[Rfam]
The family of this 89-nucleotide RNA sequence from Rhizobium gallicum is "Repression of heat shock gene expression (ROSE) element".
RNA sequence: UCAGCCGCCCGUACGGGGCUGACUGUUGGAGACGCGAGUUUCCAGCGUCUCCAUUCCAUGUUGCUUUACGGAGGAUAUGGCUAUGAGAA
Numbered sequence: 001u002c003a004g005c006c007g008c009c010c011g012u013a014c015g016g017g018g019c020u021g022a023c024u025g026u027u028g029g030a031g032a033c034g035c036g037a038g039u040u041u042c043c044a045g046c047g048u049c050u051c052c053a054u055u056c057c058a059u060g061u062u063g064c065u066u067u068a069c070g071g072a073g074g075a076u077a078u079g080g081c082u083a084u085g086a087g088a089a
Base pairs, nucleotide, nucleotide: 001022002021003020004019005018006017008016009015029051030050031049032048033047034046035045038042052085053084054083056080057079058078059077060076061075062074064073065072066071

It scores 56 bits against the family's covariance model. Rfam links the family to the GO terms regulation of translation and response to temperature stimulus. About the family: This family represents a 5' UTR cis-regulatory element found in heat shock mRNAs and is known as the ROSE (repression of heat shock gene expression) element. The ROSE element is a negative regulator of heat shock gene expression. On this family, see Nocker et al., Nucleic Acids Res 2001: "A mRNA-based thermosensor controls expression of rhizobial heat shock genes". The base pairs follow the family's consensus structure, which is taken from published work. The organism belongs to Rhizobium gallicum bv. gallicum, within Bacteria.